Notes: The record is a 324-nucleotide RNA from Penicillium oxalicum, which matches "A. fumigatus sRNA Afu_309" in Rfam. Taxonomically the source falls in Penicillium oxalicum (Eukaryota, Opisthokonta, leotiomyceta, Aspergillaceae). For this family Rfam cites "Small ncRNA transcriptome analysis from Aspergillus fumigatus suggests a novel mechanism for regulation of protein synthesis" (Jochl et al., Nucleic Acids Res, 2008).
[Rfam]
RNA sequence: UUUCCUCUUACAACAACGGAUCUGUGUCCAGCACUCCUGUCGACGGAGGUGUCAGUCUGACUGGCAUUUCUGUGUUUCGGUUGAGAGCUGGGCAGAUCGACGACCUUGGAGCCAUUCAUUUUCUGAUGUGUAUGGCAGCCUUACGGCUUCCUGUCGACAGAUCUCAGAUCAAAUGUUUGCACCAGGAAUUCCUUGGAUCUUGAGCUCCCGCCUUGGUGAGCUCGGUUUGAGGCCCUGGUCGCGAACGGCGUCAUAUUCCACCCCUCUUUACCGAUCGGCCGUCGGCCUGUGAGGUUAGGGAUAAACCAUGACAUGCCAACAUUC
Number, nucleotide and partner (000 for none) at each position: 001u000002u000003u000004c000005c000006u000007c000008u000009u000010a000011c000012a000013a000014c000015a000016a000017c000018g164019g163020a162021u161022c160023u159024g158025u157026g093027u092028c091029c090030a089031g088032c000033a000034c085035u084036c083037c080038u079039g078040u000041c000042g000043a073044c072045g071046g070047a069048g068049g000050u066051g065052u064053c000054a062055g061056u060057c000058u000059g000060a056061c055062u054063g000064g052065c051066a050067u000068u048069u047070c046071u045072g044073u043074g000075u000076u000077u000078c039079g038080g037081u000082u000083g036084a035085g034086a000087g000088c031089u030090g029091g028092g027093c026094a000095g000096a000097u000098c000099g000100a000101c156102g155103a154104c153105c000106u000107u000108g140109g139110a000111g136112c135113c134114a133115u132116u000117c000118a000119u000120u000121u000122u000123c000124u000125g000126a000127u000128g000129u000130g000131u000132a115133u114134g113135g112136c111137a000138g000139c109140c108141u000142u000143a000144c000145g000146g000147c000148u000149u000150c000151c000152u000153g104154u103155c102156g101157a025158c024159a023160g022161a021162u020163c019164u018165c000166a000167g000168a000169u000170c000171a000172a000173a000174u000175g242176u241177u000178u000179g000180c000181a239182c238183c237184a236185g235186g234187a000188a000189u000190u000191c000192c000193u000194u000195g000196g227197a226198u225199c224200u000201u000202g223203a222204g221205c220206u219207c218208c216209c215210g000211c000212c000213u000214u000215g209216g208217u000218g207219a206220g205221c204222u203223c202224g199225g198226u197227u196228u000229g000230a000231g000232g000233c000234c186235c185236u184237g183238g182239u181240c000241g176242c175243g000244a000245a000246c000247g317248g316249c315250g312251u311252c310253a309254u308255a000256u000257u000258c000259c000260a000261c000262c000263c000264c300265u299266c298267u297268u000269u000270a295271c294272c293273g000274a000275u000276c000277g287278g286279c285280c284281g000282u000283c000284g280285g279286c278287c277288u000289g000290u000291g000292a000293g272294g271295u270296u000297a267298g266299g265300g264301a000302u000303a000304a000305a000306c000307c000308a254309u253310g252311a251312c250313a000314u000315g249316c248317c247318a000319a000320c000321a000322u000323u000324c000